This 89-nucleotide RNA from Roseburia inulinivorans belongs to the Rfam family "Group II catalytic intron D1-D4-1". The pairing is the family consensus, mapped onto this sequence. Rfam links the family to the GO term Group II intron splicing. The source organism's lineage runs through Bacteria, Bacillati, Bacillota, Lachnospiraceae and Roseburia. Rfam's curators write: Group II introns are found in rRNA, tRNA and mRNA of organelles in fungi, plants and protists, and also in mRNA in bacteria.
RNA sequence: UAACCAUUGCAUAAAGCAAUGCUGAACGCAUAGAAGUCAGCAGAGGUCAUAGUAGCCAAACGGAACAAGUUCCGUUCGAGGUGAAGGAC
Numbered sequence: 001u002a003a004c005c006a007u008u009g010c011a012u013a014a015a016g017c018a019a020u021g022c023u024g025a026a027c028g029c030a031u032a033g034a035a036g037u038c039a040g041c042a043g044a045g046g047u048c049a050u051a052g053u054a055g056c057c058a059a060a061c062g063g064a065a066c067a068a069g070u071u072c073c074g075u076u077c078g079a080g081g082u083g084a085a086g087g088a089c
Stems, first nucleotide, its partner, number of pairs: 001024002005021006037044002046089003055082003